RNA: Small nucleolar RNA SNORA11
RNA sequence: GGGGUGUGCUCAGAGCAGGGAACCUGAAGAAUGGCUUCCCUGUUUACAACACACCCAACAAGAAUCUAGGGUCAUUGUGAUGAGGGGCCCAAAACGUGUGGCCUCCCUACCAACAAAUGCCCUACACAU
Numbered sequence: 001g002g003g004g005u006g007u008g009c010u011c012a013g014a015g016c017a018g019g020g021a022a023c024c025u026g027a028a029g030a031a032u033g034g035c036u037u038c039c040c041u042g043u044u045u046a047c048a049a050c051a052c053a054c055c056c057a058a059c060a061a062g063a064a065u066c067u068a069g070g071g072u073c074a075u076u077g078u079g080a081u082g083a084g085g086g087g088c089c090c091a092a093a094a095c096g097u098g099u100g101g102c103c104u105c106c107c108u109a110c111c112a113a114c115a116a117a118u119g120c121c122c123u124a125c126a127c128a129u
Base pairs, nucleotide, nucleotide: 002056003055004054005053006052007051008050013045014044015043016042017041018040019039020038021037023034024033069122070121071120072119076115077114078113082110084104085103086102088100090098091097